[Rfam]
Rfam assigns this 116-nucleotide RNA sequence from Brachypodium distachyon to the family "MIR5070 microRNA precursor family". Gene Ontology terms of the family: RISC complex and miRNA-mediated post-transcriptional gene silencing. The family's consensus secondary structure was predicted with RNAalifold.
Nucleotides: 116
Stems, first nucleotide, its partner, number of pairs: 002115010014103003018099013032085012
Number, partner (000 for none) and nucleotide at each position: 001000u002115a003114g004113g005112g006111u007110a008109c009108c010107c011106u012000g013000u014103g015102a016101c017000c018099c019098u020097u021096c022095u023094u024093a025092g026091u027090u028089c029088a030087a031000a032085c033084a034083a035082a036081u037080g038079a039078a040077c041076u042075a043074g044000u045000u046000u047000u048000u049000c050000a051000a052000a053000a054000a055000g056000u057000c058000a059000u060000g061000u062000u063000a064000u065000u066000u067000u068000a069000a070000a071000a072000u073000u074043u075042u076041a077040g078039u079038u080037c081036a082035u083034u084033u085032g086000g087030u088029u089028g090027a091026a092025c093024u094023a095022a096021g097020g098019a099018g100000a101016g102015u103014c104000u105000g106011a107010g108009g109008g110007u111006a112005c113004c114003c115002u116000g